[Rfam]
RNA sequence: UGUUGAAGUGACGAUAAAUUUGUCGGAAGGAAAACGUGUCGAUGCGAAUAGUCAGACUACAAUUAUCUGAUCAACA
Numbered sequence: 001u002g003u004u005g006a007a008g009u010g011a012c013g014a015u016a017a018a019u020u021u022g023u024c025g026g027a028a029g030g031a032a033a034a035c036g037u038g039u040c041g042a043u044g045c046g047a048a049u050a051g052u053c054a055g056a057c058u059a060c061a062a063u064u065a066u067c068u069g070a071u072c073a074a075c076a
Stems, first nucleotide, its partner, number of pairs: 001076006